[Rfam]
RNA sequence: AAAAUGGACCCGAAGGCGGUAUUCGGUAUUUCCAUAUAUAGUUUUGGGAAUAAUAUUAGAAUUGACUUUUA
Dot-bracket structure: .(((.(...(((((.......)))))(((((((............))))))).............).))).
This 71-nucleotide RNA from Nothophytophthora sp. Chile5 belongs to the Rfam family "Mitochondrion-encoded tmRNA". Taxonomically the source falls in Nothophytophthora (Eukaryota, Sar, Stramenopiles, Peronosporales). The base pairs follow the family's consensus structure. The match comes from Rfam's covariance-model search (78 bits).